[Rfam]
RNA sequence: CAGUGCUGGGAUCUCAGGAGGCAGCGCUCUCAGGACGUCUCCACCAUGGCCUGGGCUCUGCUCCUCCUCACCCUCCUCACUCAGGGCACAGGUGA
Dot-bracket structure: ..((((((((.(...((((((.((((..((((((......(((...)))))))))...)))))))))).).)))..........)))))......
Numbered sequence: 001c002a003g004u005g006c007u008g009g010g011a012u013c014u015c016a017g018g019a020g021g022c023a024g025c026g027c028u029c030u031c032a033g034g035a036c037g038u039c040u041c042c043a044c045c046a047u048g049g050c051c052u053g054g055g056c057u058c059u060g061c062u063c064c065u066c067c068u069c070a071c072c073c074u075c076c077u078c079a080c081u082c083a084g085g086g087c088a089c090a091g092g093u094g095a
Stems, first nucleotide, its partner, number of pairs: 003089005008074003012070001016068006023062004029055006041049003
Rfam assigns this 95-nucleotide RNA sequence from Macaca mulatta to the family "mir-650 microRNA precursor family". It is one of the family's seed sequences. Lineage of the source: Eukaryota > Deuterostomia > Craniata > Euteleostomi > Macaca. For this family Rfam cites "Identification of novel homologous microRNA genes in the rhesus macaque genome" (Yue et al., BMC Genomics, 2008). Gene Ontology terms of the family: RISC complex and miRNA-mediated post-transcriptional gene silencing. The family has 8 seed sequences and 106 matches in Rfam 15.1.